[Rfam]
RNA sequence: GGUUGUUCUCAGGGCGGGGUGCAAUUCCCCACCGGCGGUAUCGGGAUUUGUCCCGGAGCCCGCGAGCGCUUCCGGUCUCCAAAGCCGGAAGGUCAGCAGAUCCGGUGAGAGGCCGGAGCCGACGGUAUAGUCCGGAUGGAAGAGGACAAGG
Numbered sequence: 001g002g003u004u005g006u007u008c009u010c011a012g013g014g015c016g017g018g019g020u021g022c023a024a025u026u027c028c029c030c031a032c033c034g035g036c037g038g039u040a041u042c043g044g045g046a047u048u049u050g051u052c053c054c055g056g057a058g059c060c061c062g063c064g065a066g067c068g069c070u071u072c073c074g075g076u077c078u079c080c081a082a083a084g085c086c087g088g089a090a091g092g093u094c095a096g097c098a099g100a101u102c103c104g105g106u107g108a109g110a111g112g113c114c115g116g117a118g119c120c121g122a123c124g125g126u127a128u129a130g131u132c133c134g135g136a137u138g139g140a141a142g143a144g145g146a147c148a149a150g151g
Stems, first nucleotide, its partner, number of pairs: 003149008017029003031131002033121002035063004058119002066097002101117005123134003
The record is a 151-nucleotide sequence from Agrobacterium fabrum, which matches "FMN riboswitch aptamer (RFN element)" in Rfam. The organism belongs to Agrobacterium fabrum, within Bacteria. The family's consensus secondary structure is taken from published work. Rfam's curators put it in the seed alignment.